[Rfam]
RNA sequence: UGCCGUGAUGGUGUAAUUUGCGUCUUACUCUGUGUCUAGUGACAGAAUGCCUGCUGUCAUAGGCUAGCACAGAUGGGUGGUGAAUAUUGAGUCUGAGCA
Numbered sequence: 001u002g003c004c005g006u007g008a009u010g011g012u013g014u015a016a017u018u019u020g021c022g023u024c025u026u027a028c029u030c031u032g033u034g035u036c037u038a039g040u041g042a043c044a045g046a047a048u049g050c051c052u053g054c055u056g057u058c059a060u061a062g063g064c065u066a067g068c069a070c071a072g073a074u075g076g077g078u079g080g081u082g083a084a085u086a087u088u089g090a091g092u093c094u095g096a097g098c099a
Stems, first nucleotide, its partner, number of pairs: 001099003021082004030072005039064002041058005

Description
The family of this 99-nucleotide RNA sequence from Cyprinodon variegatus is "Small nucleolar RNA SNORD16". The source organism's lineage runs through Eukaryota, Eumetazoa, Ctenosquamata, Ovalentaria and Cyprinodon. The family's RNA type in Rfam is C/D-box small nucleolar RNA. It scores 80 bits against the family's covariance model. Gene Ontology terms of the family: RNA processing and nucleolus. A reference for the family is Fragapane et al. (1993), "A novel small nucleolar RNA (U16) is encoded inside a ribosomal protein intron and originates by processing of the pre-mRNA", EMBO J. Clan: SNORD16 clan.